[Rfam]
The family of this 217-nucleotide part of an RNA from Zea mays is "Archaeal large subunit ribosomal RNA". It scores 1222 bits against the family's covariance model.
RNA sequence: UGACCGCGCCGCGAUAGUAAUUCAACCUAGUACGAGAGGAACCGUUGAUUCACACAAUUGGUCAUCGCGCUUGGUUGAAAAGCCAGUGGCGCGAAGCUACCGUGUGCCGGAUUAUGACUGAACGCCUCUAAGUCAGAAUCCAAGCUAGCAACUGGCGCCUCUGCUCGCCGCCCGCCCCGACCCACGUUAGGGCGUUCGCGCCCCAAGGGCCCGUGCC
Numbered sequence: 001u002g003a004c005c006g007c008g009c010c011g012c013g014a015u016a017g018u019a020a021u022u023c024a025a026c027c028u029a030g031u032a033c034g035a036g037a038g039g040a041a042c043c044g045u046u047g048a049u050u051c052a053c054a055c056a057a058u059u060g061g062u063c064a065u066c067g068c069g070c071u072u073g074g075u076u077g078a079a080a081a082g083c084c085a086g087u088g089g090c091g092c093g094a095a096g097c098u099a100c101c102g103u104g105u106g107c108c109g110g111a112u113u114a115u116g117a118c119u120g121a122a123c124g125c126c127u128c129u130a131a132g133u134c135a136g137a138a139u140c141c142a143a144g145c146u147a148g149c150a151a152c153u154g155g156c157g158c159c160u161c162u163g164c165u166c167g168c169c170g171c172c173c174g175c176c177c178c179g180a181c182c183c184a185c186g187u188u189a190g191g192g193c194g195u196u197c198g199c200g201c202c203c204c205a206a207g208g209g210c211c212c213g214u215g216c217c
Stems, first nucleotide, its partner, number of pairs: 006158005015147004020050001022048005051106005059099003067092005072085005109141002115135005190212004